[Rfam]
Nucleotides: 136
Stems, first nucleotide, its partner, number of pairs: 001058004005053004015048003019044002022041003025037002071129003075125001082119002087114002090109002093106002
Number, partner (000 for none) and nucleotide at each position: 001058g002057c003056a004055u005053g006052g007051g008050u009000u010000u011000g012000g013000a014000u015048u016047u017046a018000u019044g020043a021000c022041a023040g024039g025037c026036c027000u028000g029000u030000c031000c032000u033000c034000c035000u036026g037025g038000a039024c040023c041022u042000c043020u044019c045000c046017u047016a048015g049000u050008g051007c052006c053005u054000c055004a056003u057002g058001c059000c060000a061000g062000a063000g064000c065000a066000g067000g068000c069000u070000g071129u072128g073127g074000c075125c076000c077000c078000a079000a080000a081000c082119c083118a084000u085000u086000g087114c088113c089000a090109g091108g092000c093106u094105u095000c096000u097000g098000u099000g100000c101000c102000c103000a104000g105094a106093g107000a108091c109090u110000g111000c112000u113088g114087g115000c116000a117000c118083u119082g120000a121000a122000g123000c124000a125075g126000a127073u128072u129071g130000c131000a132000c133000a134000g135000u136000g